[Rfam]
RNA sequence: GGCGAUAAAUGGUCGGCGUAAUAAACCUUUCGGACCCGGGGGCGGUACCCGGCGCCUCCACCAGAGCCCACGCGAACGAGCGUGGGUUGCGGCGGGGGCGAAAUAGGAUCGACGAGGGUGUAAAGGUCGUUCUUUCGCUCGGCAUGGUACCGCCGAUAUCGGACCAAACCUAUAGUUGCGAAUGACAACUAUGCUCCGGUGGCUGUCGCCGCGUAA
Numbered sequence: 001g002g003c004g005a006u007a008a009a010u011g012g013u014c015g016g017c018g019u020a021a022u023a024a025a026c027c028u029u030u031c032g033g034a035c036c037c038g039g040g041g042g043c044g045g046u047a048c049c050c051g052g053c054g055c056c057u058c059c060a061c062c063a064g065a066g067c068c069c070a071c072g073c074g075a076a077c078g079a080g081c082g083u084g085g086g087u088u089g090c091g092g093c094g095g096g097g098g099c100g101a102a103a104u105a106g107g108a109u110c111g112a113c114g115a116g117g118g119u120g121u122a123a124a125g126g127u128c129g130u131u132c133u134u135u136c137g138c139u140c141g142g143c144a145u146g147g148u149a150c151c152g153c154c155g156a157u158a159u160c161g162g163a164c165c166a167a168a169c170c171u172a173u174a175g176u177u178g179c180g181a182a183u184g185a186c187a188a189c190u191a192u193g194c195u196c197c198g199g200u201g202g203c204u205g206u207c208g209c210c211g212c213g214u215a216a
Stems, first nucleotide, its partner, number of pairs: 001139005014129004026118003030115003036052005053100007140155004
Rfam assigns this 216-nucleotide sequence from Segnochrobactrum spirostomi to the family "permuted transfer-messenger RNA". Bacterial tmRNA, also known as 10Sa RNA or SsrA, is named for its dual tRNA and mRNA-like properties. Its role is to liberate the mRNA from a stalled ribosome. To accomplish this part of the tmRNA is used as a reading frame that ends in a translation stop signal. It is annotated as a non-coding RNA gene. The match comes from Rfam's covariance-model search (158 bits).